The family of this 357-nucleotide part of an RNA from uncultured bacterium OMZ60_11L23 is "Bacterial large subunit ribosomal RNA".
[Rfam]
RNA sequence: CGAGAGAACCCUCGUUAAGGAAUUCGGCAAACAUACUCCGUAACUUCGGGAUAAGGAGUGCCUUUUUAACUUCGGUUAAAAAGGUCGCAGUGAAAAAGGUCCGGGCGACUGUUUACUAAAAACACAGGUCUCUGCUAAAAUGUAUAAUUGAUGUAUAGAGACUGACGCGUGCUCGAUGCCAGAAAGUUAAGGGGAUAGGUUAUUUCCUGAGCAAUCAGGAGAGAAGCUUGGAACUGAAGCUCUGGUGAAUGGCGGCUCUAACUAUGAGAGUCCUAAGGUAGCGAAGUUCCUUGUCGGGUAAUUUCCGACGCGCAUGAAUCGCGUAACGACCUGGACACUGUCUCAACGAGGGACUCG
Dot-bracket structure: ((((....((((((((.(((..............(((((....(....).....)))))(((((((((((....)))))))))))(...)........(((((((((..(((.........)))..(((((((((...(((.....)))...)..))))))))..((((.(((..(((((((..(((...((...(((((..((((((((....))))))))...)))))...))...))))))))..)))))((((((.......))))))(...)...............((((((.....))))))..........))))...)).)))))))....))).)))))))).))))
Numbered sequence: 001c002g003a004g005a006g007a008a009c010c011c012u013c014g015u016u017a018a019g020g021a022a023u024u025c026g027g028c029a030a031a032c033a034u035a036c037u038c039c040g041u042a043a044c045u046u047c048g049g050g051a052u053a054a055g056g057a058g059u060g061c062c063u064u065u066u067u068a069a070c071u072u073c074g075g076u077u078a079a080a081a082a083g084g085u086c087g088c089a090g091u092g093a094a095a096a097a098g099g100u101c102c103g104g105g106c107g108a109c110u111g112u113u114u115a116c117u118a119a120a121a122a123c124a125c126a127g128g129u130c131u132c133u134g135c136u137a138a139a140a141u142g143u144a145u146a147a148u149u150g151a152u153g154u155a156u157a158g159a160g161a162c163u164g165a166c167g168c169g170u171g172c173u174c175g176a177u178g179c180c181a182g183a184a185a186g187u188u189a190a191g192g193g194g195a196u197a198g199g200u201u202a203u204u205u206c207c208u209g210a211g212c213a214a215u216c217a218g219g220a221g222a223g224a225a226g227c228u229u230g231g232a233a234c235u236g237a238a239g240c241u242c243u244g245g246u247g248a249a250u251g252g253c254g255g256c257u258c259u260a261a262c263u264a265u266g267a268g269a270g271u272c273c274u275a276a277g278g279u280a281g282c283g284a285a286g287u288u289c290c291u292u293g294u295c296g297g298g299u300a301a302u303u304u305c306c307g308a309c310g311c312g313c314a315u316g317a318a319u320c321g322c323g324u325a326a327c328g329a330c331c332u333g334g335a336c337a338c339u340g341u342c343u344c345a346a347c348g349a350g351g352g353a354c355u356c357g
Stems, first nucleotide, its partner, number of pairs: 001357004009352008018343003035059005044049001060085011086090001099336007106328002110124003127163008135153001139149003166323004171253003176250002178246005185241003191235002196230005203222008254272006273277001293309006